RNA: TPP riboswitch aptamer (THI element)
Organism: Patulibacter medicamentivorans
RNA sequence: CACACACAUCCGGGGAGUCCCAGGCAGGGGGCUGAGAUUGCGCUGACGCCGCGCUGACCCGACGACCUGAUCCGGUUCAUACCGGCGGAGGGAGCAUCAUGGAACGGCAC
Numbered sequence: 001c002a003c004a005c006a007c008a009u010c011c012g013g014g015g016a017g018u019c020c021c022a023g024g025c026a027g028g029g030g031g032c033u034g035a036g037a038u039u040g041c042g043c044u045g046a047c048g049c050c051g052c053g054c055u056g057a058c059c060c061g062a063c064g065a066c067c068u069g070a071u072c073c074g075g076u077u078c079a080u081a082c083c084g085g086c087g088g089a090g091g092g093a094g095c096a097u098c099a100u101g102g103a104a105c106g107g108c109a110c
Base pairs, nucleotide, nucleotide: 008097009096011061012060013059014058016055017032018031019030020029021028040054041053042052043051066091067090068089072085073084074083075082